[Rfam]
RNA sequence: AGAGUGUUAUGAUGUUGGAGGCGACUCCUAGUCUAGCUCAACGCUUCUCUUGCCGAUUUUCGGCAAGAG
Numbered sequence: 001a002g003a004g005u006g007u008u009a010u011g012a013u014g015u016u017g018g019a020g021g022c023g024a025c026u027c028c029u030a031g032u033c034u035a036g037c038u039c040a041a042c043g044c045u046u047c048u049c050u051u052g053c054c055g056a057u058u059u060u061c062g063g064c065a066a067g068a069g
Stems, first nucleotide, its partner, number of pairs: 002039004011033003017028004047069009

Source information: The record is a 69-nucleotide RNA sequence, which matches "L17 ribosomal protein downstream element" in Rfam. The family's consensus secondary structure is taken from published work. By type it is a cis-regulatory element.